[Rfam]
RNA sequence: GCUCUGGUGACCUGAACUGGUGUUUGGUCAGGACUUCAAAUCCUGGGGUGUCGAGAGGCACAGGCGUUCGAUUCGCCCUCUGGAGC
Numbered sequence: 001g002c003u004c005u006g007g008u009g010a011c012c013u014g015a016a017c018u019g020g021u022g023u024u025u026g027g028u029c030a031g032g033a034c035u036u037c038a039a040a041u042c043c044u045g046g047g048g049u050g051u052c053g054a055g056a057g058g059c060a061c062a063g064g065c066g067u068u069c070g071a072u073u074c075g076c077c078c079u080c081u082g083g084a085g086c
Stems, first nucleotide, its partner, number of pairs: 001086007009078001012027006028046006048061005063077004

Shown here is an 86-nucleotide RNA from Stylonychia lemnae, a member of the family "Selenocysteine transfer RNA".
A search with the family's covariance model found it, with a score of 69 bits.
Taxonomically the source falls in Stylonychia (Eukaryota, Alveolata, Intramacronucleata, Sporadotrichida).